[Rfam]
RNA sequence: GACAAUCCCCCUUUACUACGGAUCGUCCGGCACGUACCUGCCGGUGAAGGAGUACACA
Numbered sequence: 001g002a003c004a005a006u007c008c009c010c011c012u013u014u015a016c017u018a019c020g021g022a023u024c025g026u027c028c029g030g031c032a033c034g035u036a037c038c039u040g041c042c043g044g045u046g047a048a049g050g051a052g053u054a055c056a057c058a
Stems, first nucleotide, its partner, number of pairs: 009050002012048004027044006

The family of this 58-nucleotide sequence from Streptomycetaceae bacterium MP113-05 is "msiK RNA". The base pairs follow the family's consensus structure, which is taken from published work.